[Rfam]
RNA sequence: ACAUACAUUGGCGAUGGGACUCGCCAGGCCGGAACAGGCCGAAUGCCACCUUGGCUGAUGGUUCCUGCGAACAG
Dot-bracket structure: .........[[[[..((((((]]]]...................(((.....)))....)))))).........
The record is a 74-nucleotide RNA sequence from Microlunatus endophyticus, which matches "Fluoride riboswitch aptamer (crcB RNA motif)" in Rfam. Pairs were carried over by alignment from the consensus structure, which is taken from published work. A search with the family's covariance model found it, with a score of 37 bits. The organism belongs to Microlunatus, within Bacteria. On this family, see Ren et al., Nature 2012: "Fluoride ion encapsulation by Mg2+ ions and phosphates in a fluoride riboswitch".